[Rfam]
RNA sequence: AAGAUAGCAUCACCUGGUGUGAGUUAUACUUUUUUUUCGGAUAUUUCUAAAGAUGGUUUUGUCAUCUGCUUGGAUCUGAUUCAGACCGAGACAGAAAG
Numbered sequence: 001a002a003g004a005u006a007g008c009a010u011c012a013c014c015u016g017g018u019g020u021g022a023g024u025u026a027u028a029c030u031u032u033u034u035u036u037u038c039g040g041a042u043a044u045u046u047c048u049a050a051a052g053a054u055g056g057u058u059u060u061g062u063c064a065u066c067u068g069c070u071u072g073g074a075u076c077u078g079a080u081u082c083a084g085a086c087c088g089a090g091a092c093a094g095a096a097a098g
Base pairs, nucleotide, nucleotide: 001031002030003029004027005026006025007024008023010022011021012020013019066094067093068092069090070089071088072087073086075085076084077083
pan motif: a 98-nucleotide RNA sequence from Megasphaera elsdenii. Lineage of the source: Bacteria > Veillonellales > Veillonellaceae > Megasphaera > Megasphaera elsdenii.